RNA sequence: UUUCCAGUCAGGCUCCUGGCUAAAUUCCAGCUAUUAGCUGGAGUUAGGCCAAACCUGACUGUUAA
Numbered sequence: 001u002u003u004c005c006a007g008u009c010a011g012g013c014u015c016c017u018g019g020c021u022a023a024a025u026u027c028c029a030g031c032u033a034u035u036a037g038c039u040g041g042a043g044u045u046a047g048g049c050c051a052a053a054c055c056u057g058a059c060u061g062u063u064a065a
Stems, first nucleotide, its partner, number of pairs: 007059003011055002017051005023045002027041005